[Rfam]
RNA sequence: AAUCGUCCGAUCUACCAUCUGAUAGACCGCAGUAGGACUCAAGCCAUAGGACGGGGACUUGAG
Numbered sequence: 001a002a003u004c005g006u007c008c009g010a011u012c013u014a015c016c017a018u019c020u021g022a023u024a025g026a027c028c029g030c031a032g033u034a035g036g037a038c039u040c041a042a043g044c045c046a047u048a049g050g051a052c053g054g055g056g057a058c059u060u061g062a063g
Stems, first nucleotide, its partner, number of pairs: 004053005011026004038063006044056002